The record is an 88-nucleotide RNA from Medicago truncatula, which matches "MIR2617 microRNA precursor family" in Rfam. A search with the family's covariance model found it, with a score of 62 bits. The source organism's lineage runs through Eukaryota, Streptophyta, eudicotyledons, Hologalegina and Medicago.
RNA sequence: AUGUAGUGUGACAUGCCCGUUUGGGAAUUACUCUGAUGCAUGUUUAUUUAUUAUUAAAUUGAUUUUGGGUAACCGGGUGUUACACACA
Numbered sequence: 001a002u003g004u005a006g007u008g009u010g011a012c013a014u015g016c017c018c019g020u021u022u023g024g025g026a027a028u029u030a031c032u033c034u035g036a037u038g039c040a041u042g043u044u045u046a047u048u049u050a051u052u053a054u055u056a057a058a059u060u061g062a063u064u065u066u067g068g069g070u071a072a073c074c075g076g077g078u079g080u081u082a083c084a085c086a087c088a
Base pairs, nucleotide, nucleotide: 002088003087004086006085007084008083009082010081011080012079013078014077016076017075019073020072021071